RNA sequence: GAGAAAUGAAGAUAGAAAUGAUCUUACUAUUAAAAUGAAGAUAUGAGAUCCAACUCUGAUCUCACUCUGAGC
Numbered sequence: 001g002a003g004a005a006a007u008g009a010a011g012a013u014a015g016a017a018a019u020g021a022u023c024u025u026a027c028u029a030u031u032a033a034a035a036u037g038a039a040g041a042u043a044u045g046a047g048a049u050c051c052a053a054c055u056c057u058g059a060u061c062u063c064a065c066u067c068u069g070a071g072c
Stems, first nucleotide, its partner, number of pairs: 001063004
Source information:
The record is a 72-nucleotide RNA sequence from Phascolarctos cinereus, which matches "Small nucleolar RNA SNORD19" in Rfam. It scores 38 bits against the family's covariance model.